[Rfam]
RNA sequence: UCCUGACUAUGCUAUGCGUAGAUUAGGGCUACACGUCAAUUUAUCAGCACAUUGUUGAUUUUCAUUUUAAGUCAUAAAAUACAAAAGCGACAUCCGUGAAGCUUUGGUGCAGGACUAUCCUGGUAAUAGGUAAAUUGGCUAUAAGCA
Numbered sequence: 001u002c003c004u005g006a007c008u009a010u011g012c013u014a015u016g017c018g019u020a021g022a023u024u025a026g027g028g029c030u031a032c033a034c035g036u037c038a039a040u041u042u043a044u045c046a047g048c049a050c051a052u053u054g055u056u057g058a059u060u061u062u063c064a065u066u067u068u069a070a071g072u073c074a075u076a077a078a079a080u081a082c083a084a085a086a087g088c089g090a091c092a093u094c095c096g097u098g099a100a101g102c103u104u105u106g107g108u109g110c111a112g113g114a115c116u117a118u119c120c121u122g123g124u125a126a127u128a129g130g131u132a133a134a135u136u137g138g139c140u141a142u143a144a145g146c147a
Stems, first nucleotide, its partner, number of pairs: 001028006007021006035139010052114002055111001084105005091098002
Notes: Shown here is a 147-nucleotide RNA sequence, a member of the family "RT-16 RNA". Pairs were carried over by alignment from the consensus structure, which is taken from published work.